Rfam assigns this 173-nucleotide RNA sequence from Mycobacterium botniense to the family "M-box riboswitch aptamer (ykoK leader)". Rfam links the family to the GO terms response to magnesium ion and regulation of gene expression. From the family's description: M-box riboswitch, also know as ykoK leader is described as a metaloregulatory RNA that sense divalent metals and function as a genetic control element of genes related to divalent metal transport in bacteria. It was first reported upstream of the B.subtilis ykoK gene and genes with related functions in other bacteria.
RNA sequence: CAUGCACCUCGCUAGGUGAGGCGUCUGCACGGAUACAGGCCACUGACCCCUAACGUCGAGAGACGCCCCGGGUCAGGACAGCUCUUCCCGGCACAAGGGUUGAGCCCAAGUGGCUUCCGGAUCCGAUCCGGAUACGCCGUGCAGUGCCAAAGCUCUGACGAGUGGGGUACCUC
Numbered sequence: 001c002a003u004g005c006a007c008c009u010c011g012c013u014a015g016g017u018g019a020g021g022c023g024u025c026u027g028c029a030c031g032g033a034u035a036c037a038g039g040c041c042a043c044u045g046a047c048c049c050c051u052a053a054c055g056u057c058g059a060g061a062g063a064c065g066c067c068c069c070g071g072g073u074c075a076g077g078a079c080a081g082c083u084c085u086u087c088c089c090g091g092c093a094c095a096a097g098g099g100u101u102g103a104g105c106c107c108a109a110g111u112g113g114c115u116u117c118c119g120g121a122u123c124c125g126a127u128c129c130g131g132a133u134a135c136g137c138c139g140u141g142c143a144g145u146g147c148c149a150a151a152g153c154u155c156u157g158a159c160g161a162g163u164g165g166g167g168u169a170c171c172u173c
Stems, first nucleotide, its partner, number of pairs: 006168005011159001013096001015154003020148003025144008039114005045074005054065004081105004087099003116132005